[Rfam]
Nucleotides: 066
Stems, first nucleotide, its partner, number of pairs: 011048006024038005052066005
Number, partner (000 for none) and nucleotide at each position: 001000u002000u003000u004000a005000g006000c007000u008000u009000c010000g011048c012047g013046u014045c015044u016043g017000c018000g019000a020000a021000a022000a023000c024038g025037c026036c027035a028034c029000g030000u031000c032000c033000u034028g035027u036026g037025g038024c039000a040000u041000c042000a043016c044015a045014g046013a047012c048011g049000u050000g051000a052066c053065u054064c055063a056062c057000a058000u059000c060000c061000u062056g063055u064054g065053a066052g